Description:
This 175-nucleotide RNA sequence from Streptomyces sp. Ag109_O5-10 belongs to the Rfam family "c-di-AMP riboswitch aptamer (ydaO/yuaA leader)". Its family is annotated with cyclic-di-AMP binding and regulation of gene expression in the Gene Ontology.
RNA sequence: GCACGGCCUCCGCCGAGUCCGGGGCGCCACCGCGCAUCCGGAGCCGGGGACCCACACCGAUCCCGGGGUGAAUCGGUCCCGACUCCCCUCCCUGGGAGCGGACCGUAGGGCAACCCUUCCGAACCACCCGCCCGAACCCGACAGCUAACUCGGUAGGCGGAACACCGGAAGGAGU
Numbered sequence: 001g002c003a004c005g006g007c008c009u010c011c012g013c014c015g016a017g018u019c020c021g022g023g024g025c026g027c028c029a030c031c032g033c034g035c036a037u038c039c040g041g042a043g044c045c046g047g048g049g050a051c052c053c054a055c056a057c058c059g060a061u062c063c064c065g066g067g068g069u070g071a072a073u074c075g076g077u078c079c080c081g082a083c084u085c086c087c088c089u090c091c092c093u094g095g096g097a098g099c100g101g102a103c104c105g106u107a108g109g110g111c112a113a114c115c116c117u118u119c120c121g122a123a124c125c126a127c128c129c130g131c132c133c134g135a136a137c138c139c140g141a142c143a144g145c146u147a148a149c150u151c152g153g154u155a156g157g158c159g160g161a162a163c164a165c166c167g168g169a170a171g172g173a174g175u
Stems, first nucleotide, its partner, number of pairs: 011159004018042006043154006053065001066139003074105006108133004